[Rfam]
RNA sequence: ACGUAGGCCUUGCCUAGUGGUUACUUCGAGUUCUUUAUUUCCCCUUAACUUCGUACCACGGGCGCAAACCUACAUUUUU
Numbered sequence: 001a002c003g004u005a006g007g008c009c010u011u012g013c014c015u016a017g018u019g020g021u022u023a024c025u026u027c028g029a030g031u032u033c034u035u036u037a038u039u040u041c042c043c044c045u046u047a048a049c050u051u052c053g054u055a056c057c058a059c060g061g062g063c064g065c066a067a068a069c070c071u072a073c074a075u076u077u078u079u
Stems, first nucleotide, its partner, number of pairs: 003073005012063004017059004025055001027053003
A member of the RNA family "Vault RNA" from Trichonephila clavata, 79 nucleotides long.
Lineage of the source: Eukaryota > Opisthokonta > Eumetazoa > Araneomorphae > Trichonephila.